[Rfam]
RNA: c-di-GMP-I riboswitch aptamer
Organism: Firmicutes bacterium CAG:345
RNA sequence: ACCUGUAAAAGGCAAAAUAUCAGUAAUGAUGUGACGCAAAGCUACAGGGUCUAAAAUUUAAUGAAAAUUAGAUAGCCAGUUACCUUA
Numbered sequence: 001a002c003c004u005g006u007a008a009a010a011g012g013c014a015a016a017a018u019a020u021c022a023g024u025a026a027u028g029a030u031g032u033g034a035c036g037c038a039a040a041g042c043u044a045c046a047g048g049g050u051c052u053a054a055a056a057u058u059u060a061a062u063g064a065a066a067a068u069u070a071g072a073u074a075g076c077c078a079g080u081u082a083c084c085u086u087a
Stems, first nucleotide, its partner, number of pairs: 012037002017032006040081004047077002049073003057066003